[Rfam]
RNA sequence: GGGCUGGUAAUGGACACGUAAAUAUUCCUUGGAAAAGCUGAACAAAAUGAGUAUUUCACUCUUCAAAUUGAGGUCC
Number, nucleotide and partner (000 for none) at each position: 001g076002g075003g074004c073005u072006g000007g000008u000009a000010a000011u000012g000013g000014a000015c000016a000017c000018g000019u000020a000021a000022a000023u053024a052025u051026u050027c049028c000029u045030u044031g043032g000033a000034a000035a000036a000037g000038c000039u000040g000041a000042a000043c031044a030045a029046a000047a000048u000049g027050a026051g025052u024053a023054u000055u000056u000057c000058a000059c000060u000061c000062u000063u000064c000065a000066a000067a000068u000069u000070g000071a000072g005073g004074u003075c002076c001
RNA: Small nucleolar RNA SNORD116
Organism: Chrysochloris asiatica